[Rfam]
RNA: TPP riboswitch aptamer (THI element)
RNA sequence: UGUAAACGCUAGGGGCGCUUUUGCUGAGAUGAUCUAAGGAUCAACCCUUUUUACCUGAUCAGGUUAGUACCUGCGUAGGGAAGCAAAUAUCUGACUAU
Numbered sequence: 001u002g003u004a005a006a007c008g009c010u011a012g013g014g015g016c017g018c019u020u021u022u023g024c025u026g027a028g029a030u031g032a033u034c035u036a037a038g039g040a041u042c043a044a045c046c047c048u049u050u051u052u053a054c055c056u057g058a059u060c061a062g063g064u065u066a067g068u069a070c071c072u073g074c075g076u077a078g079g080g081a082a083g084c085a086a087a088u089a090u091c092u093g094a095c096u097a098u
Stems, first nucleotide, its partner, number of pairs: 008084003011048004017024002031042004054079004060073004